Shown here is an 84-nucleotide RNA from Aquibacillus halophilus, a member of the family "c-di-GMP-I riboswitch aptamer".
Nucleotides: 084
Stems, first nucleotide, its partner, number of pairs: 012037002017032006040078002045074003048069003055063003
Number, partner (000 for none) and nucleotide at each position: 001000u002000u003000c004000a005000g006000u007000a008000a009000a010000a011000g012037g013036c014000a015000a016000a017032c018031u019030u020029a021028u022027u023000g024000a025000a026000a027022a028021a029020u030019a031018a032017g033000g034000a035000c036013g037012c038000a039000a040078a041077g042000a043000u044000a045074c046073g047072g048069g049068u050067c051000u052000a053000a054000g055063g056062u057061a058000a059000a060000a061057u062056g063055c064000u065000a066000a067050g068049a069048u070000a071000g072047c073046c074045g075000u076000g077041c078040u079000a080000c081000c082000u083000c084000g

Record summary: It scores 73 bits against the family's covariance model.